[Rfam]
RNA: mir-4667 microRNA precursor family
Organism: Eptesicus fuscus
RNA sequence: AGGUCCUGAUUGGGGGCGGAAGGAGAACCCAAGGAAAGUUCACUUGGAGGCCCUUCCUUUCUGUCCCCACAGGACUUCGGC
Numbered sequence: 001a002g003g004u005c006c007u008g009a010u011u012g013g014g015g016g017c018g019g020a021a022g023g024a025g026a027a028c029c030c031a032a033g034g035a036a037a038g039u040u041c042a043c044u045u046g047g048a049g050g051c052c053c054u055u056c057c058u059u060u061c062u063g064u065c066c067c068c069a070c071a072g073g074a075c076u077u078c079g080g081c
Stems, first nucleotide, its partner, number of pairs: 001077008011069009020059006028049001029047005